Overview:
The family of this 68-nucleotide RNA sequence from Lingula anatina is "bZIP non canonical Hac1/Xbp1 intron". Lineage of the source: Eukaryota > Spiralia > Lophotrochozoa > Lingulida > Lingula. The family has 112 seed sequences and 1,325 matches in Rfam 15.1. Rfam's curators write: bZIP intron RNA is a non-canonical intron that was first reported in HAC1 gene in yeast and XBP1 gene in Metazoa. It is annotated as a small RNA. The base pairs follow the family's consensus structure, which was predicted with RNAfold. On this family, see Iracane et al., mSphere 2018: "Identification of an Exceptionally Long Intron in the HAC1 Gene of Candida parapsilosis". A search with the family's covariance model found it, with a score of 44 bits.
RNA sequence: AAGAACAUUCAUCCCCUGAGUCCGCAGCACUCAACCUUCCUCAGCAGCAGGAAAAGAUGAUUGCUCUU
Numbered sequence: 001a002a003g004a005a006c007a008u009u010c011a012u013c014c015c016c017u018g019a020g021u022c023c024g025c026a027g028c029a030c031u032c033a034a035c036c037u038u039c040c041u042c043a044g045c046a047g048c049a050g051g052a053a054a055a056g057a058u059g060a061u062u063g064c065u066c067u068u
Stems, first nucleotide, its partner, number of pairs: 001068004006063002009060005017033005037053005